[Rfam]
The record is a 140-nucleotide RNA from Merops nubicus, which matches "Small Cajal body specific RNA 11" in Rfam. scaRNAs are a specific class of small nuclear RNAs which localise to the Cajal bodies and guide the modification of RNA polymerase II transcribed spliceosomal RNAs U1, U2, U4, U5 and U12. ACA57 belongs to the H/ACA box class of guide RNAs as it has the predicted hairpin-hinge-hairpin-tail structure, conserved H/ACA-box motifs and is found associated with GAR1.
RNA sequence: GCGUCCUGACCUCAUCCUGACCGUUCCCCUCACCAGAGAUGUGGUGGUGGGGACUGGGGGUGGACGCAGAUCAACUUACCUCUCAUGUUAGGAGGGCUACCAAAAAUACAUGCAAGCCCUUAAAGGCAAGAGUGGACACU
Numbered sequence: 001g002c003g004u005c006c007u008g009a010c011c012u013c014a015u016c017c018u019g020a021c022c023g024u025u026c027c028c029c030u031c032a033c034c035a036g037a038g039a040u041g042u043g044g045u046g047g048u049g050g051g052g053a054c055u056g057g058g059g060g061u062g063g064a065c066g067c068a069g070a071u072c073a074a075c076u077u078a079c080c081u082c083u084c085a086u087g088u089u090a091g092g093a094g095g096g097c098u099a100c101c102a103a104a105a106a107u108a109c110a111u112g113c114a115a116g117c118c119c120u121u122a123a124a125g126g127c128a129a130g131a132g133u134g135g136a137c138a139c140u
Stems, first nucleotide, its partner, number of pairs: 002066005010059002025053003028049001030047004079135002082132003088125002092121007100112001102111001
Overview:
The match comes from Rfam's covariance-model search (71 bits). The literature on the family includes a 2002 paper in EMBO J by Darzacq et al., "Cajal body-specific small nuclear RNAs: a novel class of 2'-O-methylation and pseudouridylation guide RNAs". Gene Ontology terms of the family: nucleolus, Cajal body and RNA processing.